Notes
Rfam assigns this 92-nucleotide RNA sequence from Rhizobacter sp. AJA081-3 to the family "Selenocysteine transfer RNA". Rfam links the family to the GO term triplet codon-amino acid adaptor activity. Pairs were carried over by alignment from the consensus structure, which is taken from published work.
[Rfam]
RNA sequence: GGAGGGGAAACGAUCCUGGUGGAUCGGCCGGGCUUCAAACCCGGUGGGUGGCGCCAUGCGCUGCCGGGCGGGUUCGACUCCCGUUCCCCUCC
Numbered sequence: 001g002g003a004g005g006g007g008a009a010a011c012g013a014u015c016c017u018g019g020u021g022g023a024u025c026g027g028c029c030g031g032g033c034u035u036c037a038a039a040c041c042c043g044g045u046g047g048g049u050g051g052c053g054c055c056a057u058g059c060g061c062u063g064c065c066g067g068g069c070g071g072g073u074u075c076g077a078c079u080c081c082c083g084u085u086c087c088c089c090u091c092c
Stems, first nucleotide, its partner, number of pairs: 001092009011026006027045006047065005069083004
Description: The match comes from Rfam's covariance-model search (83 bits).